Annotation
A member of the RNA family "Acido-Lenti-1 RNA" from Phragmitibacter flavus, 45 nucleotides long. The base pairs follow the family's consensus structure, which is taken from published work. Rfam classes the family as a small RNA. The match comes from Rfam's covariance-model search (37 bits).
RNA sequence: CCCGGCACUGCGUGCCGGGCUGUUAUGAAUCGUCCCGUUGGGACG
Number, nucleotide and partner (000 for none) at each position: 001c019002c018003c017004g016005g015006c014007a013008c012009u000010g000011c000012g008013u007014g006015c005016c004017g003018g002019g001020c000021u000022g000023u000024u000025a000026u000027g000028a000029a000030u000031c000032g044033u043034c042035c041036c040037g000038u000039u000040g036041g035042g034043a033044c032045g000